Background:
This 87-nucleotide sequence from Paenibacillus lutrae belongs to the Rfam family "c-di-GMP-I riboswitch aptamer". The organism belongs to Paenibacillus, within Bacteria. Rfam links the family to the GO term cyclic-di-GMP binding. A search with the family's covariance model found it, with a score of 82 bits.
RNA sequence: AAACUUCAUAGGCAAACCUGCAGAAAUGCAGGGACGCAAAGCUAUAGGGACUAAGGUCUAAGGAGAUGAUGUCAGCCAGCUGCCAAA
Numbered sequence: 001a002a003a004c005u006u007c008a009u010a011g012g013c014a015a016a017c018c019u020g021c022a023g024a025a026a027u028g029c030a031g032g033g034a035c036g037c038a039a040a041g042c043u044a045u046a047g048g049g050a051c052u053a054a055g056g057u058c059u060a061a062g063g064a065g066a067u068g069a070u071g072u073c074a075g076c077c078a079g080c081u082g083c084c085a086a087a
Stems, first nucleotide, its partner, number of pairs: 012037002017032006040081004047077002049073003056067004